Shown here is a 74-nucleotide RNA from Branchiostoma floridae, a member of the family "mir-4860 microRNA precursor family". The base pairs follow the family's consensus structure, which was predicted with RNAalifold.
RNA sequence: ACUCUCUGCCUGUCAACGUCUCUGUACAGUGAACAUGAGGCAUGUGUAGAGAUUGUGUGACGGGUAGUGAGCCC
Numbered sequence: 001a002c003u004c005u006c007u008g009c010c011u012g013u014c015a016a017c018g019u020c021u022c023u024g025u026a027c028a029g030u031g032a033a034c035a036u037g038a039g040g041c042a043u044g045u046g047u048a049g050a051g052a053u054u055g056u057g058u059g060a061c062g063g064g065u066a067g068u069g070a071g072c073c074c
Base pairs, nucleotide, nucleotide: 002071003070004069006067007066008065009064010063011062012061013060014059015058016056017055018054019052020051021050022049023048024047025046026045027044028043029041030040